Overview
A member of the RNA family "PhotoRC-II RNA", 87 nucleotides long.

[Rfam]
RNA sequence: UCAUCAUAUCUUCCCCCUAACCAAGACCACGGGGUUAUAAUGUCUUCUUAUCCACUAUUGAAGGGAUUAGUGGAAAUACUGUAUCGU
Numbered sequence: 001u002c003a004u005c006a007u008a009u010c011u012u013c014c015c016c017c018u019a020a021c022c023a024a025g026a027c028c029a030c031g032g033g034g035u036u037a038u039a040a041u042g043u044c045u046u047c048u049u050a051u052c053c054a055c056u057a058u059u060g061a062a063g064g065g066a067u068u069a070g071u072g073g074a075a076a077u078a079c080u081g082u083a084u085c086g087u
Stems, first nucleotide, its partner, number of pairs: 013034004018029001024045004051074007